Overview
Shown here is a 154-nucleotide RNA from Achromobacter sp. AONIH1, a member of the family "radC RNA". The family has 148 seed sequences and 500 matches in Rfam 15.1. Lineage of the source: Bacteria > Pseudomonadati > Burkholderiales > Alcaligenaceae > Achromobacter.
RNA sequence: ACGCUGCGUAUAUGUUAGUCGGCGUAGCCGGCAACAUCCCAGGCGGUCAAGGCCAUCAAGACCGCGGUGCGCCAUCGGCGUUCUGGCAGUAUCAAUCCUUUGAACGUUCUUUGUUCUACAAAUCCACCCUAAGGGACAAACUGUCCCUUAGGGC
Numbered sequence: 001a002c003g004c005u006g007c008g009u010a011u012a013u014g015u016u017a018g019u020c021g022g023c024g025u026a027g028c029c030g031g032c033a034a035c036a037u038c039c040c041a042g043g044c045g046g047u048c049a050a051g052g053c054c055a056u057c058a059a060g061a062c063c064g065c066g067g068u069g070c071g072c073c074a075u076c077g078g079c080g081u082u083c084u085g086g087c088a089g090u091a092u093c094a095a096u097c098c099u100u101u102g103a104a105c106g107u108u109c110u111u112u113g114u115u116c117u118a119c120a121a122a123u124c125c126a127c128c129c130u131a132a133g134g135g136a137c138a139a140a141c142u143g144u145c146c147c148u149u150a151g152g153g154c
Stems, first nucleotide, its partner, number of pairs: 012037003015033001018032006043065006052087003066084002069081004124153002130150008